A member of the RNA family "TPP riboswitch aptamer (THI element)" from Mycobacterium manitobense, 111 nucleotides long.
RNA sequence: GAGGCUCGACACGGGAGUCCCGGCACCGGGGACUGAGAGUGGGUGCGCGCCGCCCUUACCGUCGGACCUGAUCCGGAUCAUGCCGGCGAAGGGAGCAGCAAUGCCUCUGGG
Dot-bracket structure: ......(..(((((.((((((.......))))).......((((.......)))))..))))....(((...((((......))))...)))..)..).............
Numbered sequence: 001g002a003g004g005c006u007c008g009a010c011a012c013g014g015g016a017g018u019c020c021c022g023g024c025a026c027c028g029g030g031g032a033c034u035g036a037g038a039g040u041g042g043g044u045g046c047g048c049g050c051c052g053c054c055c056u057u058a059c060c061g062u063c064g065g066a067c068c069u070g071a072u073c074c075g076g077a078u079c080a081u082g083c084c085g086g087c088g089a090a091g092g093g094a095g096c097a098g099c100a101a102u103g104c105c106u107c108u109g110g111g
Stems, first nucleotide, its partner, number of pairs: 007098001010095001011062004016056001017033005041055004067092003073086004